The record is a 171-nucleotide RNA sequence from Desulfosporosinus sp. HMP52, which matches "Group II catalytic intron D1-D4-3" in Rfam. The base pairs follow the family's consensus structure. Its family is annotated with Group II intron splicing in the Gene Ontology. The match comes from Rfam's covariance-model search (120 bits).
RNA sequence: UCCACCGCGAGGGGAAUCCAGAGGAAGCCGGCGGCAAAGUUCCGACCCGAGGAACACGAACAGUAUCAGGCGCUUUAUGUGGGGUGAGACUGCGUAACAAGUUAAAGCCCAAAAGCUACACGGACACGAUAGCGUAAAUGCUGCGGGUACAUGGAAUGAAAGUGAAUCGUC
Dot-bracket structure: (((.((....)))))...........(.(((..((...(((((((((((...........(((((....(((.(...((((((((..((((........))))...))))..............))))..).)))...))))))))))...))))))....))...))).)